[Rfam]
RNA sequence: AAUGCAGAUGAUGAAAGCUUGACCUUAGGUGGGAGGUUGAGACUGUUUUGGUCUCUUGUCUUCUCUUGCCAGUGCUAGGCUUGUCAUAGUUACUCUGAUGCAUU
Numbered sequence: 001a002a003u004g005c006a007g008a009u010g011a012u013g014a015a016a017g018c019u020u021g022a023c024c025u026u027a028g029g030u031g032g033g034a035g036g037u038u039g040a041g042a043c044u045g046u047u048u049u050g051g052u053c054u055c056u057u058g059u060c061u062u063c064u065c066u067u068g069c070c071a072g073u074g075c076u077a078g079g080c081u082u083g084u085c086a087u088a089g090u091u092a093c094u095c096u097g098a099u100g101c102a103u104u
Stems, first nucleotide, its partner, number of pairs: 001104006
The record is a 104-nucleotide RNA sequence from Geotrypetes seraphini, which matches "Small nucleolar RNA SNORD46" in Rfam.
The source organism's lineage runs through Eukaryota, Metazoa, Sarcopterygii, Dipnotetrapodomorpha and Geotrypetes.
U40 is a C/D box small nucleolar RNA, also known as snoZ153 in plants. The human sequence has also been annotated in the sequence databases as U46. U40 is encoded in intron 2 of the ribosomal protein S8 gene in human, and is hypothesised to guide methylation of 2'-O-ribose residues on 28S ribosomal RNA. This family represents vertebrate U40.
It scores 62 bits against the family's covariance model.